Shown here is a 48-nucleotide RNA from Streptomyces sp. NRRL F-5135, a member of the family "L31-Actinobacteria ribosomal protein leader". The base pairs follow the family's consensus structure, which is taken from published work.
RNA sequence: UCGGUCCCGGUUCACGUACGCGCAACACGGCGCGUGCGACCCGGAGCC
Numbered sequence: 001u002c003g004g005u006c007c008c009g010g011u012u013c014a015c016g017u018a019c020g021c022g023c024a025a026c027a028c029g030g031c032g033c034g035u036g037c038g039a040c041c042c043g044g045a046g047c048c
Base pairs, nucleotide, nucleotide: 003048004047005046007044008043009042010041015038016037017036018035019034020033021032022031023030